[Rfam]
RNA: Mammalian CPEB3 ribozyme
Organism: Crocodylus porosus
RNA sequence: CUUGCAAGUUUGAGACCAUAGCAGAAGUGCUCAUGGUGUGGCCAUGUCAGAUUCCAACAAAUCUGUGAAUUCUGCU
Numbered sequence: 001c002u003u004g005c006a007a008g009u010u011u012g013a014g015a016c017c018a019u020a021g022c023a024g025a026a027g028u029g030c031u032c033a034u035g036g037u038g039u040g041g042c043c044a045u046g047u048c049a050g051a052u053u054c055c056a057a058c059a060a061a062u063c064u065g066u067g068a069a070u071u072c073u074g075c076u
Stems, first nucleotide, its partner, number of pairs: 014043001016041002020076007027039003048065006